RNA sequence: AAAAAUGCUUUCUAGGGUUCCGAUUUGCGUUUGCAGCAAGUGCUGGUCCGAGAGGAAGCUGCCUCAAAAGAGGGACACGGAGGGAUAAAAGCCCGGGAGAA
Numbered sequence: 001a002a003a004a005a006u007g008c009u010u011u012c013u014a015g016g017g018u019u020c021c022g023a024u025u026u027g028c029g030u031u032u033g034c035a036g037c038a039a040g041u042g043c044u045g046g047u048c049c050g051a052g053a054g055g056a057a058g059c060u061g062c063c064u065c066a067a068a069a070g071a072g073g074g075a076c077a078c079g080g081a082g083g084g085a086u087a088a089a090a091g092c093c094c095g096g097g098a099g100a101a
Base pairs, nucleotide, nucleotide: 007059008058009057010056011055012054015049016048020046021045022043023041024040025039026038027037028036060074062073063072064071065070076096078099082094083093084092
A member of the RNA family "Guanidine-I riboswitch aptamer" from Lentihominibacter hominis, 101 nucleotides long. The source organism's lineage runs through Bacteria, Bacillati, Bacillota, Clostridia and Lentihominibacter. The literature on the family includes a 2004 paper in Proc Natl Acad Sci U S A by Barrick et al., "New RNA motifs suggest an expanded scope for riboswitches in bacterial genetic control". Rfam describes the family as follows. This family represents a conserved RNA structure found upstream of the ykkC and yxkD genes in Bacillus subtilis and related genes in other bacteria. The function of this family is unclear although it has been suggested that it may function to switch on efflux pumps and detoxification systems in response to harmful environmental molecules.